The record is a 585-nucleotide part of an RNA from an uncultured bacterium, which matches "Bacterial small subunit ribosomal RNA" in Rfam. The base pairs follow the family's consensus structure, which is taken from published work. The literature on the family includes a 2001 paper in Science by Yusupov et al., "Crystal structure of the ribosome at 5.5 A resolution".

RNA sequence: UGACGGGGGCCCGCACAAGCAGUGGAGUAUGUGGUUUAAUUCGACGCAACGCGAAGAACCUUACCAAGGCUUGACAUACAGGGGAAUACUUAAGAGAUUAAGUCGCUCUUCGGAGCCGCUGUACAGGUGGUGCAUGGUUGUCGUCAGCUCGUGUCGUGAGAUGUUGGGUUAAGUCCCGCAACGAGCGCAACCCCUGUGAUUAGUUGCCAGCACGUAAAGGUGGGAACUCUAAUCAGACUGCCGGUGAUAAAUCGGAGGAAGGUGGGGACGACGUCAAAUCAUCAUGCCCUAUAUGUCUUGGGCUACACACGUACUACAAUGGCUGUAACAGAGGGAAGCGAAACAGUGAUGUGGAGCGAAACCCAAAAAAGCAGUCUCAGUUCGGAUUGAAGGCUGAAAUUCGCCUUCAUGAAGCCGGAAUUGCUAGUAAUGGCAGGUCAGCAUACUGCCGUGAAUACGUUCCCGGGCCUUGUACACACCGCCCGUCACACCAUGAGAGCCGGGGGGACCCGAAGUCGGCAGUCUAACCGCAAGGAGGACGCCGCCGAAGGUAAAACUGGGGAUUGGGGGGAAGUCGUAACAAGG
Numbered sequence: 001u002g003a004c005g006g007g008g009g010c011c012c013g014c015a016c017a018a019g020c021a022g023u024g025g026a027g028u029a030u031g032u033g034g035u036u037u038a039a040u041u042c043g044a045c046g047c048a049a050c051g052c053g054a055a056g057a058a059c060c061u062u063a064c065c066a067a068g069g070c071u072u073g074a075c076a077u078a079c080a081g082g083g084g085a086a087u088a089c090u091u092a093a094g095a096g097a098u099u100a101a102g103u104c105g106c107u108c109u110u111c112g113g114a115g116c117c118g119c120u121g122u123a124c125a126g127g128u129g130g131u132g133c134a135u136g137g138u139u140g141u142c143g144u145c146a147g148c149u150c151g152u153g154u155c156g157u158g159a160g161a162u163g164u165u166g167g168g169u170u171a172a173g174u175c176c177c178g179c180a181a182c183g184a185g186c187g188c189a190a191c192c193c194c195u196g197u198g199a200u201u202a203g204u205u206g207c208c209a210g211c212a213c214g215u216a217a218a219g220g221u222g223g224g225a226a227c228u229c230u231a232a233u234c235a236g237a238c239u240g241c242c243g244g245u246g247a248u249a250a251a252u253c254g255g256a257g258g259a260a261g262g263u264g265g266g267g268a269c270g271a272c273g274u275c276a277a278a279u280c281a282u283c284a285u286g287c288c289c290u291a292u293a294u295g296u297c298u299u300g301g302g303c304u305a306c307a308c309a310c311g312u313a314c315u316a317c318a319a320u321g322g323c324u325g326u327a328a329c330a331g332a333g334g335g336a337a338g339c340g341a342a343a344c345a346g347u348g349a350u351g352u353g354g355a356g357c358g359a360a361a362c363c364c365a366a367a368a369a370a371g372c373a374g375u376c377u378c379a380g381u382u383c384g385g386a387u388u389g390a391a392g393g394c395u396g397a398a399a400u401u402c403g404c405c406u407u408c409a410u411g412a413a414g415c416c417g418g419a420a421u422u423g424c425u426a427g428u429a430a431u432g433g434c435a436g437g438u439c440a441g442c443a444u445a446c447u448g449c450c451g452u453g454a455a456u457a458c459g460u461u462c463c464c465g466g467g468c469c470u471u472g473u474a475c476a477c478a479c480c481g482c483c484c485g486u487c488a489c490a491c492c493a494u495g496a497g498a499g500c501c502g503g504g505g506g507g508a509c510c511c512g513a514a515g516u517c518g519g520c521a522g523u524c525u526a527a528c529c530g531c532a533a534g535g536a537g538g539a540c541g542c543c544g545c546c547g548a549a550g551g552u553a554a555a556a557c558u559g560g561g562g563a564u565u566g567g568g569g570g571g572a573a574g575u576c577g578u579a580a581c582a583a584g585g
Stems, first nucleotide, its partner, number of pairs: 001476002003473003007470007015460002019424005024317001026315008034306002040055004064301007077123002080120002083117002088103006106115003126290002129288004135284002137279003140275001142273002147186006153162003165178004192267004197235007207224002211222003238258002241255005321376006333364003338357002343352003383414001388409007430452007479584001481581001484577002489571001491569002494566003500560004508552003515546001517544004522540004528535002